[Rfam]
RNA sequence: UUACCGGCGGUCUCUAAUUCGCUUGGUGCAGGUCGGGAACCGGUUCGCUUGGUGAUGCCACAUGGCUUUUUCUGAUUGGGUUGUCAGAUUGCGAAAUGGAUCCCGCCUUGCAUCAACUGAAUCGGAUACCGCGGUGAAG
Numbered sequence: 001u002u003a004c005c006g007g008c009g010g011u012c013u014c015u016a017a018u019u020c021g022c023u024u025g026g027u028g029c030a031g032g033u034c035g036g037g038a039a040c041c042g043g044u045u046c047g048c049u050u051g052g053u054g055a056u057g058c059c060a061c062a063u064g065g066c067u068u069u070u071u072c073u074g075a076u077u078g079g080g081u082u083g084u085c086a087g088a089u090u091g092c093g094a095a096a097u098g099g100a101u102c103c104c105g106c107c108u109u110g111c112a113u114c115a116a117c118u119g120a121a122u123c124g125g126a127u128a129c130c131g132c133g134g135u136g137a138a139g
Stems, first nucleotide, its partner, number of pairs: 013126002017122004023116010034105005040099002
RNA: MIR168 microRNA precursor family